This 134-nucleotide RNA from Candidatus Brocadia sapporoensis belongs to the Rfam family "c-di-GMP-I riboswitch aptamer". The family's consensus secondary structure is taken from published work. NCBI's taxonomy places the organism under Bacteria, Pseudomonadati, Candidatus Brocadiales, Candidatus Brocadiaceae, Candidatus Brocadia. Rfam describes the family as follows. GEMM was predicted in a large-scale screen for bacterial structured RNA regulatory elements. It scores 51 bits against the family's covariance model.
RNA sequence: UUUCGAUAAAGGCAAACCCUGAGUGAUCAGGGGACGCAAAGGAAAAGGAUCUUUAACCUGCAAAGAUGACAUGUACCUAAAGUAAAGGCACCCUGGAUAAAGUAACAGAGUUUAAAGAUAGCCUUCCCGCCGAA
Numbered sequence: 001u002u003u004c005g006a007u008a009a010a011g012g013c014a015a016a017c018c019c020u021g022a023g024u025g026a027u028c029a030g031g032g033g034a035c036g037c038a039a040a041g042g043a044a045a046a047g048g049a050u051c052u053u054u055a056a057c058c059u060g061c062a063a064a065g066a067u068g069a070c071a072u073g074u075a076c077c078u079a080a081a082g083u084a085a086a087g088g089c090a091c092c093c094u095g096g097a098u099a100a101a102g103u104a105a106c107a108g109a110g111u112u113u114a115a116a117g118a119u120a121g122c123c124u125u126c127c128c129g130c131c132g133a134a
Base pairs, nucleotide, nucleotide: 012037013036017032018031019030020029021028022027041127042126043125046124047123048122049119050118051117056113